[Rfam]
RNA sequence: CCGGGGAGUGGCGUGGGUCGAUCCAUCCGCCCCCGGGACGAGACGAAAUGUGGCCGCAUGCGCGGCUGAAUCGCAAC
Numbered sequence: 001c002c003g004g005g006g007a008g009u010g011g012c013g014u015g016g017g018u019c020g021a022u023c024c025a026u027c028c029g030c031c032c033c034c035g036g037g038a039c040g041a042g043a044c045g046a047a048a049u050g051u052g053g054c055c056g057c058a059u060g061c062g063c064g065g066c067u068g069a070a071u072c073g074c075a076a077c
Stems, first nucleotide, its partner, number of pairs: 001036005044073003052067005
This 77-nucleotide sequence from Halorubrum vacuolatum belongs to the Rfam family "eL15-Euryarchaeota ribosomal protein leader". By type it is a cis-regulatory leader. The match comes from Rfam's covariance-model search (36 bits). On this family, see Eckert and Weinberg, BMC Microbiol 2020: "Discovery of 20 novel ribosomal leader candidates in bacteria and archaea".